[Rfam]
Record summary
A member of the RNA family "ssNA-helicase RNA", 46 nucleotides long. The family's RNA type in Rfam is small RNA.
RNA sequence: UGCCAGAGGCCAGUAUUACCCUCUGGCACUUCUGUCGCAAGUCGCA
Numbered sequence: 001u002g003c004c005a006g007a008g009g010c011c012a013g014u015a016u017u018a019c020c021c022u023c024u025g026g027c028a029c030u031u032c033u034g035u036c037g038c039a040a041g042u043c044g045c046a
Stems, first nucleotide, its partner, number of pairs: 001028009